The record is a 31-nucleotide RNA from Eurypyga helias, which matches "Iron response element II" in Rfam. It scores 32 bits against the family's covariance model. By type it is a cis-regulatory element.

RNA sequence: AUAUUAUCAGGAACUGUGUUUUCUAUAAUGU
Numbered sequence: 001a002u003a004u005u006a007u008c009a010g011g012a013a014c015u016g017u018g019u020u021u022u023c024u025a026u027a028a029u030g031u
Stems, first nucleotide, its partner, number of pairs: 001031007009024005014018001
Rfam's curators write: IRE, TFRC, SLC40A1, SDHB, SLC11A2, CDC42BPA, ACO2, ALAS2_H.SAPIENS, CDC14A, EPAS1, ALAS2, qoxD, Hao1, NDUFS1, transferrin, Aconitate. The organism belongs to Eurypyga, within Eukaryota. Its family is annotated with response to iron ion in the Gene Ontology.